[Rfam]
RNA sequence: GAGUCCACGUCACCGAACGGCAGGAGCGGGGGACCCAGGUACGUGCCGGCCGGGCGACAGCACGGACGGCUUGGGGUGAAGUCUCGCCCGAGCGCGGCCCCACGCGCUCGUGAGACCGGGCAACUCCAGCCCGAACCCGACAGCUCACCUCGUAGGCGUAGGAGAGGAAGCAC
Numbered sequence: 001g002a003g004u005c006c007a008c009g010u011c012a013c014c015g016a017a018c019g020g021c022a023g024g025a026g027c028g029g030g031g032g033a034c035c036c037a038g039g040u041a042c043g044u045g046c047c048g049g050c051c052g053g054g055c056g057a058c059a060g061c062a063c064g065g066a067c068g069g070c071u072u073g074g075g076g077u078g079a080a081g082u083c084u085c086g087c088c089c090g091a092g093c094g095c096g097g098c099c100c101c102a103c104g105c106g107c108u109c110g111u112g113a114g115a116c117c118g119g120g121c122a123a124c125u126c127c128a129g130c131c132c133g134a135a136c137c138c139g140a141c142a143g144c145u146c147a148c149c150u151c152g153u154a155g156g157c158g159u160a161g162g163a164g165a166g167g168a169a170g171c172a173c
Base pairs, nucleotide, nucleotide: 004025005024006023026153027152028151029150030149031148036073037072038071039070040069074138075137076136082115083114084113085112086111087110118132119131120130121129
RNA: c-di-AMP riboswitch aptamer (ydaO/yuaA leader)